[Rfam]
RNA sequence: GGAUCGAUGAUGAUGUUCACAUAAACAAUCCAUGGAAAAGCUCAAUGAAAUUAGUGAAAAGUCACCACCAUCAUCUAAUACCUCAUGAAACUGUGGUCC
Numbered sequence: 001g002g003a004u005c006g007a008u009g010a011u012g013a014u015g016u017u018c019a020c021a022u023a024a025a026c027a028a029u030c031c032a033u034g035g036a037a038a039a040g041c042u043c044a045a046u047g048a049a050a051u052u053a054g055u056g057a058a059a060a061g062u063c064a065c066c067a068c069c070a071u072c073a074u075c076u077a078a079u080a081c082c083u084c085a086u087g088a089a090a091c092u093g094u095g096g097u098c099c
Stems, first nucleotide, its partner, number of pairs: 001099005026056002029053001033047002

The family of this 99-nucleotide RNA from Chrysochloris asiatica is "Small nucleolar RNA SNORD116". A search with the family's covariance model found it, with a score of 52 bits. For this family Rfam cites "Identification of brain-specific and imprinted small nucleolar RNA genes exhibiting an unusual genomic organization" (Cavaille et al., Proc Natl Acad Sci U S A, 2000). Lineage of the source: Eukaryota > Deuterostomia > Sarcopterygii > Tetrapoda > Chrysochloris.